[Rfam]
RNA sequence: UGGCGCCCAAUGUGGGGCCUGGAUACUGGGGGCAUAUCAUGAGGGAGACUACAGAAAAAGGAAGGAGUGCACUCGCUAAAUCUCAAGCAAUUUGGAGACGCGUCACGGGAGCCUGCCACGACUGAACCGAAGGUAAGUUGUGCCGUCCAAUCAUGGGGCAAGUAUUAAGCCACCAUCAGAUUUAUGUUAUGCAGUUGAGGGAGGCUCUCAAGACAAGAGGAGUAAAGGUUAAGACUGUGGGUUUAUUUCAUUUCUUUGAUUUUGUAAAGGUCAUUUGUCCUU
Numbered sequence: 001u002g003g004c005g006c007c008c009a010a011u012g013u014g015g016g017g018c019c020u021g022g023a024u025a026c027u028g029g030g031g032g033c034a035u036a037u038c039a040u041g042a043g044g045g046a047g048a049c050u051a052c053a054g055a056a057a058a059a060g061g062a063a064g065g066a067g068u069g070c071a072c073u074c075g076c077u078a079a080a081u082c083u084c085a086a087g088c089a090a091u092u093u094g095g096a097g098a099c100g101c102g103u104c105a106c107g108g109g110a111g112c113c114u115g116c117c118a119c120g121a122c123u124g125a126a127c128c129g130a131a132g133g134u135a136a137g138u139u140g141u142g143c144c145g146u147c148c149a150a151u152c153a154u155g156g157g158g159c160a161a162g163u164a165u166u167a168a169g170c171c172a173c174c175a176u177c178a179g180a181u182u183u184a185u186g187u188u189a190u191g192c193a194g195u196u197g198a199g200g201g202a203g204g205c206u207c208u209c210a211a212g213a214c215a216a217g218a219g220g221a222g223u224a225a226a227g228g229u230u231a232a233g234a235c236u237g238u239g240g241g242u243u244u245a246u247u248u249c250a251u252u253u254c255u256u257u258g259a260u261u262u263u264g265u266a267a268a269g270g271u272c273a274u275u276u277g278u279c280c281u282u
Stems, first nucleotide, its partner, number of pairs: 006032003012026003037051001040048001087134002092131002099124002104120001107117002141160003146157004167208001169205003217257006226244005267282004272277001
Rfam assigns this 282-nucleotide sequence from Nannospalax galili to the family "Mason-Pfizer monkey virus packaging signal".
The literature on the family includes a 2004 paper in Virus Res by Mustafa et al., "Mutational analysis of the predicted secondary RNA structure of the Mason-Pfizer monkey virus packaging signal".
Rfam classes the family as a cis-regulatory element.
This family represents a group of sequences that are related to the Mason-Pfizer monkey virus (MPMV) packaging signal. The packaging signal is located in the 5' UTR and is required for specific RNA encapsidation.
The family's consensus secondary structure was predicted with PFOLD.